[Rfam]
RNA sequence: AAACUUACCUGGUCGGGAGACACCGCGAUCAAGAAGGCGGUUAUCUGUGGCGAGGCCCGGGCCUUGCACUUCGGUCUGGGCUGACCUGCACGGCAGCUCCGAGUUGGGGUUCGCCGACGACUAAAUUUUUGAGUGAGGGGCUGCGUCCGCGCGGCCCUGA
Numbered sequence: 001a002a003a004c005u006u007a008c009c010u011g012g013u014c015g016g017g018a019g020a021c022a023c024c025g026c027g028a029u030c031a032a033g034a035a036g037g038c039g040g041u042u043a044u045c046u047g048u049g050g051c052g053a054g055g056c057c058c059g060g061g062c063c064u065u066g067c068a069c070u071u072c073g074g075u076c077u078g079g080g081c082u083g084a085c086c087u088g089c090a091c092g093g094c095a096g097c098u099c100c101g102a103g104u105u106g107g108g109g110u111u112c113g114c115c116g117a118c119g120a121c122u123a124a125a126u127u128u129u130u131g132a133g134u135g136a137g138g139g140g141c142u143g144c145g146u147c148c149g150c151g152c153g154g155c156c157c158u159g160a
Stems, first nucleotide, its partner, number of pairs: 012121004016046003020042001022041005047089004052085001054082003058078003062073001091116003095111002098107002137158004142153004
Rfam assigns this 160-nucleotide sequence from Diploscapter pachys to the family "U1 spliceosomal RNA".
Gene Ontology terms of the family: mRNA 5'-splice site recognition, U1 snRNP and pre-mRNA 5'-splice site binding.
The source organism's lineage runs through Eukaryota, Eumetazoa, Chromadorea, Rhabditina and Diploscapter.
U1 is a small nuclear RNA (snRNA) component of the spliceosome (involved in pre-mRNA splicing). Its 5' end forms complementary base pairs with the 5' splice junction, thus defining the 5' donor site of an intron. There are significant differences in sequence and secondary structure between metazoan and yeast U1 snRNAs, the latter being much longer (568 nucleotides as compared to 164 nucleotides in human).